[Rfam]
RNA sequence: GGUAGCUACCGGCCUUGCUGACGAUAGUCAGCAACUCUAAUGCCGGUAGCGACCUGCCGCCGAGCGUAUGCAAGGGGGCGCUUCCUUGC
Numbered sequence: 001g002g003u004a005g006c007u008a009c010c011g012g013c014c015u016u017g018c019u020g021a022c023g024a025u026a027g028u029c030a031g032c033a034a035c036u037c038u039a040a041u042g043c044c045g046g047u048a049g050c051g052a053c054c055u056g057c058c059g060c061c062g063a064g065c066g067u068a069u070g071c072a073a074g075g076g077g078g079c080g081c082u083u084c085c086u087u088g089c
Stems, first nucleotide, its partner, number of pairs: 008047006016033006056079003060075002064071002
Rfam assigns this 89-nucleotide sequence to the family "GA-cis RNA". Pairs were carried over by alignment from the consensus structure, which is taken from published work. Rfam classes the family as a small RNA.